RNA: ZMP/ZTP riboswitch aptamer (pfl RNA motif)
RNA sequence: GCGGCGGGCCGUGACUGGCGCGCUGGGAUGGGACCGACCAUCGGGGAGCGGCCCGAGCGAACCUUGUGCCGUGCGCCUGGGCCGUACUG
Numbered sequence: 001g002c003g004g005c006g007g008g009c010c011g012u013g014a015c016u017g018g019c020g021c022g023c024u025g026g027g028a029u030g031g032g033a034c035c036g037a038c039c040a041u042c043g044g045g046g047a048g049c050g051g052c053c054c055g056a057g058c059g060a061a062c063c064u065u066g067u068g069c070c071g072u073g074c075g076c077c078u079g080g081g082c083c084g085u086a087c088u089g
Stems, first nucleotide, its partner, number of pairs: 005055008015045002017077005028041004068082003